[Rfam]
RNA sequence: GGCCCAGGUCUUGCUAAUACCUCUGUGCAGGUAGCCAACGGCGGUUGCCCCCUUACAUACGACAAAGACGUCGC
Numbered sequence: 001g002g003c004c005c006a007g008g009u010c011u012u013g014c015u016a017a018u019a020c021c022u023c024u025g026u027g028c029a030g031g032u033a034g035c036c037a038a039c040g041g042c043g044g045u046u047g048c049c050c051c052c053u054u055a056c057a058u059a060c061g062a063c064a065a066a067g068a069c070g071u072c073g074c
Base pairs, nucleotide, nucleotide: 030049031048032047033046034045035044036043
The record is a 74-nucleotide sequence from Pseudomonas sp. StFLB209, which matches "narK RNA" in Rfam. Taxonomically the source falls in Pseudomonas (Bacteria, Pseudomonadati, Pseudomonadales, Pseudomonadaceae). It scores 72 bits against the family's covariance model.